[Rfam]
RNA: FMN riboswitch aptamer (RFN element)
Organism: Lactococcus fujiensis
RNA sequence: UCAUAUCUUCAGGGCACCGUGAAAUUCGGGACCGGCGGUAAAUGAGAUUAAUUAAUUGAUCUGAUGAGUCCGCGAUUCGCAAAGCGAUUGAAGCAGUGAGAUCCUGCUACCGACAGUAAAAUGCAUUUGCAUGUGACCAAUGAACGCAUUGGUCUGAUAGUCUGGAUGGAAGAAGAUAUAC
Numbered sequence: 001u002c003a004u005a006u007c008u009u010c011a012g013g014g015c016a017c018c019g020u021g022a023a024a025u026u027c028g029g030g031a032c033c034g035g036c037g038g039u040a041a042a043u044g045a046g047a048u049u050a051a052u053u054a055a056u057u058g059a060u061c062u063g064a065u066g067a068g069u070c071c072g073c074g075a076u077u078c079g080c081a082a083a084g085c086g087a088u089u090g091a092a093g094c095a096g097u098g099a100g101a102u103c104c105u106g107c108u109a110c111c112g113a114c115a116g117u118a119a120a121a122u123g124c125a126u127u128u129g130c131a132u133g134u135g136a137c138c139a140a141u142g143a144a145c146g147c148a149u150u151g152g153u154c155u156g157a158u159a160g161u162c163u164g165g166a167u168g169g170a171a172g173a174a175g176a177u178a179u180a181c
Stems, first nucleotide, its partner, number of pairs: 003179008017029003033112002035073004068110002077087002092108005114164003